[Rfam]
Rfam assigns this 116-nucleotide RNA sequence from Phoenix dactylifera to the family "Small nucleolar RNA Z278". It is annotated as a C/D-box small nucleolar RNA. From the family's description: snoZ278 is a C/D box small nucleolar RNA. Its methylation guide targets have not been reported. NCBI's taxonomy places the organism under Eukaryota, Viridiplantae, Magnoliopsida, Arecaceae, Phoenix.
RNA sequence: GCUAGUGAUGAUUUGUCUGCAAAAUCGAUGUGUUGUGAAACCAAGUCCCUGCUUGCAGGGAGAACCUACUUGGGGAAGCAGCAUUUUACAUGACAUUAGUCAGAUACUUCUGAGGC
Number, nucleotide and partner (000 for none) at each position: 001g116002c115003u114004a000005g000006u000007g000008a000009u000010g000011a000012u000013u000014u000015g000016u000017c000018u000019g000020c000021a000022a000023a000024a000025u000026c000027g000028a000029u000030g000031u000032g000033u000034u000035g000036u000037g000038a000039a000040a000041c000042c000043a000044a000045g000046u000047c060048c059049c058050u057051g056052c000053u000054u000055g000056c051057a050058g049059g048060g047061a000062g000063a000064a000065c000066c000067u000068a000069c000070u000071u000072g000073g000074g000075g000076a000077a000078g000079c000080a000081g000082c000083a000084u000085u000086u000087u000088a000089c000090a000091u000092g000093a000094c000095a000096u000097u000098a000099g000100u000101c000102a000103g000104a000105u000106a000107c000108u000109u000110c000111u000112g000113a000114g003115g002116c001